A member of the RNA family "Purine riboswitch aptamer" from Evansella caseinilytica, 101 nucleotides long. Rfam describes the family as follows. Riboswitches are metabolite binding domains within certain messenger RNAs that serve as precision sensors for their corresponding targets.
RNA sequence: GAAAACUAACAAUAACGACCUCAUAUAAUCUUGGGAAUUGGCCCAAAAGUUUCUACCUGACGACCGUAAAUCGUUGGACUAUGAGGGUGACGAACGCAAUA
Number, nucleotide and partner (000 for none) at each position: 001g000002a000003a000004a000005a000006c000007u000008a000009a000010c000011a000012a000013u000014a000015a000016c000017g000018a000019c086020c085021u084022c083023a082024u081025a080026u000027a000028a000029u048030c000031u046032u045033g044034g043035g042036a000037a000038u000039u000040g000041g000042c035043c034044c033045a032046a031047a000048a029049g000050u000051u000052u000053c000054u000055a000056c000057c077058u076059g075060a074061c073062g072063a071064c000065c000066g000067u000068a000069a000070a000071u063072c062073g061074u060075u059076g058077g057078a000079c000080u025081a024082u023083g022084a021085g020086g019087g000088u000089g000090a000091c000092g000093a000094a000095c000096g000097c000098a000099a000100u000101a000